Rfam assigns this 78-nucleotide RNA from Steatornis caripensis to the family "mir-23 microRNA precursor family". Rfam links the family to the GO terms RISC complex and gene silencing by miRNA. A reference for the family is Chen et al. (2005), "The developmental miRNA profiles of zebrafish as determined by small RNA cloning", Genes Dev. NCBI's taxonomy places the organism under Eukaryota, Bilateria, Dipnotetrapodomorpha, Archelosauria, Steatornis. Pairs were carried over by alignment from the consensus structure, which was predicted with PFOLD. The family has 83 seed sequences and 1,403 matches in Rfam 15.1. It scores 70 bits against the family's covariance model.
RNA sequence: CGCCCGCCGGGGUUCCUGGCGAUGCGAUUUUUUUACCGUCUCGCCCAAAAUCACAUUGCCAGGGAUUUCCAACGGGCG
Numbered sequence: 001c002g003c004c005c006g007c008c009g010g011g012g013u014u015c016c017u018g019g020c021g022a023u024g025c026g027a028u029u030u031u032u033u034u035a036c037c038g039u040c041u042c043g044c045c046c047a048a049a050a051u052c053a054c055a056u057u058g059c060c061a062g063g064g065a066u067u068u069c070c071a072a073c074g075g076g077c078g
Stems, first nucleotide, its partner, number of pairs: 001078002004075003010070002012066013026052005